[Rfam]
RNA sequence: GGAAGGGCUUGCAAGCAGACACAACUUAUGUUGGGCCAGCAUCGGGGAGAGAGGAGGCAAAAAUGGAAAGAAAUGUAGCUUCGGUGUUAUAGUCUUUCCUUAUACCUCCCCCUCUUCCCGAGGCCUGCGUAUCUAGGAUGCUGGCGUAAUGGUUGCAAGUCGCCCGUCUUGAAACACGG
Numbered sequence: 001g002g003a004a005g006g007g008c009u010u011g012c013a014a015g016c017a018g019a020c021a022c023a024a025c026u027u028a029u030g031u032u033g034g035g036c037c038a039g040c041a042u043c044g045g046g047g048a049g050a051g052a053g054g055a056g057g058c059a060a061a062a063a064u065g066g067a068a069a070g071a072a073a074u075g076u077a078g079c080u081u082c083g084g085u086g087u088u089a090u091a092g093u094c095u096u097u098c099c100u101u102a103u104a105c106c107u108c109c110c111c112c113u114c115u116u117c118c119c120g121a122g123g124c125c126u127g128c129g130u131a132u133c134u135a136g137g138a139u140g141c142u143g144g145c146g147u148a149a150u151g152g153u154u155g156c157a158a159g160u161c162g163c164c165c166g167u168c169u170u171g172a173a174a175c176a177c178g179g
Stems, first nucleotide, its partner, number of pairs: 006161009164179004
Source information:
The family of this 179-nucleotide part of an RNA from Metschnikowia sp. JCM 33374 is "Archaeal large subunit ribosomal RNA". Gene Ontology terms of the family: structural constituent of ribosome and ribosome. The family's consensus secondary structure is taken from published work. The source organism's lineage runs through Eukaryota, Fungi, Saccharomycotina, Metschnikowiaceae and Metschnikowia.